[Rfam]
RNA sequence: UUGUUUUACCAAAAAAUACUCACGCUUAUCGUCACGUUUGGUAGGGUGCUGGCUCACAUGGGUUAGUUACUAAUCGGGAUAAGUGGAGGCUCAAC
Numbered sequence: 001u002u003g004u005u006u007u008a009c010c011a012a013a014a015a016a017u018a019c020u021c022a023c024g025c026u027u028a029u030c031g032u033c034a035c036g037u038u039u040g041g042u043a044g045g046g047u048g049c050u051g052g053c054u055c056a057c058a059u060g061g062g063u064u065a066g067u068u069a070c071u072a073a074u075c076g077g078g079a080u081a082a083g084u085g086g087a088g089g090c091u092c093a094a095c
Base pairs, nucleotide, nucleotide: 023085024084025083026082027081028080029079030078035076036075038073039072040071041070042069043068048067049066050065051064052063
A member of the RNA family "t44 RNA" from Crenothrix polyspora, 95 nucleotides long. Lineage of the source: Bacteria > Pseudomonadota > Gammaproteobacteria > Methylococcales > Crenothrix. This family consists of a number of bacterial RNA genes of between 135 and 170 bases in length. The t44 gene has been identified in several species of enteric bacteria but homologs have also been identified in Pseudomonas and Coxiella species. The t44 gene is found between the map and rpsB genes in all species in the full alignment apart from Shigella flexneri. The function of this RNA is unknown.